[Rfam]
RNA sequence: GGAGGCUGCAAGUGGACGAACCGCUCGCCAACCGGGUCAGGUCUGGAAAGAAGCAGCCCCAACGAGUUCUGGUACGGGUCAUUGUGUCAGCUUCCUAC
Number, nucleotide and partner (000 for none) at each position: 001g000002g000003a000004g092005g091006c090007u089008g088009c000010a000011a083012g082013u081014g080015g000016a000017c076018g075019a000020a073021c072022c071023g067024c066025u065026c064027g063028c000029c000030a000031a000032c000033c000034g059035g058036g057037u056038c000039a000040g000041g000042u051043c050044u049045g000046g000047a000048a000049a044050g043051a042052a000053g000054c000055a000056g037057c036058c035059c034060c000061a000062a000063c027064g026065a025066g024067u023068u000069c000070u000071g022072g021073u020074a000075c018076g017077g000078g000079u000080c014081a013082u012083u011084g000085u000086g000087u000088c008089a007090g006091c005092u004093u000094c000095c000096u000097a000098c000
The record is a 98-nucleotide RNA sequence from Bartonella bacilliformis, which matches "Bacterial small signal recognition particle RNA" in Rfam. Rfam classes the family as a non-coding RNA gene. A search with the family's covariance model found it, with a score of 57 bits. Pairs were carried over by alignment from the consensus structure, which is taken from published work.